[Rfam]
RNA sequence: UCCUUGCGGACGCCAGAGUCUGCGCGUGCUUGUGGAUGCUUCUUCUGCUGGGGCAAGCCGAGGCGGCGCUGG
Number, nucleotide and partner (000 for none) at each position: 001u000002c000003c000004u000005u000006g023007c022008g021009g020010a019011c018012g000013c000014c000015a000016g000017a000018g011019u010020c009021u008022g007023c006024g067025c066026g000027u065028g064029c063030u062031u061032g000033u000034g058035g000036a000037u055038g054039c000040u000041u000042c000043u000044u000045c000046u000047g000048c000049u000050g000051g000052g000053g000054c038055a037056a000057g000058c034059c000060g000061a031062g030063g029064c028065g027066g025067c024068g000069c000070u000071g000072g000
RNA: Hepatitis C virus stem-loop SL2531 and SL2549AU
Organism: Orthohepacivirus hominis